The family of this 83-nucleotide RNA sequence from Garciella nitratireducens is "ZMP/ZTP riboswitch aptamer (pfl RNA motif)". It scores 63 bits against the family's covariance model. Pairs were carried over by alignment from the consensus structure, which is taken from published work.

RNA sequence: AAUUAAUCACAUGACUGGCGGAUUUGUGGAGUACCACAAGGGAAUGUGAGUUUGUUUAAAAGUCGACCGCCUGGGCUACAAUG
Numbered sequence: 001a002a003u004u005a006a007u008c009a010c011a012u013g014a015c016u017g018g019c020g021g022a023u024u025u026g027u028g029g030a031g032u033a034c035c036a037c038a039a040g041g042g043a044a045u046g047u048g049a050g051u052u053u054g055u056u057u058a059a060a061a062g063u064c065g066a067c068c069g070c071c072u073g074g075g076c077u078a079c080a081a082u083g
Base pairs, nucleotide, nucleotide: 005051007049008048009047010046011045012044015041016040017071018070019069020068021067026037027036028035029034061077062076063075064074
Dot-bracket structure: ....(.((((((..(([[[[[....((((....))))..))..)))))).).........((((..]]]]]..))))......